This 141-nucleotide RNA sequence from Gossypium mustelinum belongs to the Rfam family "MIR7502 microRNA precursor family".
Its family is annotated with miRNA-mediated post-transcriptional gene silencing and RISC complex in the Gene Ontology.
NCBI's taxonomy places the organism under Eukaryota, Streptophyta, Spermatophyta, rosids, Gossypium.

RNA sequence: UUUUUUUUUAUCUAUUUUUACUGUUAAAAACUAGAAUGAUUGACAGAAUAAUCGAACAGUGACAUGUGACAUGCCACGUGUAUGUCGUGCUGAUGUACAAGGAUCAUUUUUUAACAGUAAAAGUAUAUAAAAAUUUUAACA
Numbered sequence: 001u002u003u004u005u006u007u008u009u010a011u012c013u014a015u016u017u018u019u020a021c022u023g024u025u026a027a028a029a030a031c032u033a034g035a036a037u038g039a040u041u042g043a044c045a046g047a048a049u050a051a052u053c054g055a056a057c058a059g060u061g062a063c064a065u066g067u068g069a070c071a072u073g074c075c076a077c078g079u080g081u082a083u084g085u086c087g088u089g090c091u092g093a094u095g096u097a098c099a100a101g102g103a104u105c106a107u108u109u110u111u112u113a114a115c116a117g118u119a120a121a122a123g124u125a126u127a128u129a130a131a132a133a134u135u136u137u138a139a140c141a
Stems, first nucleotide, its partner, number of pairs: 001139002005133007014124009024114006
Notes: Rfam 15.1 lists 74,505 matches to the family in 24 species. The match comes from Rfam's covariance-model search (81 bits).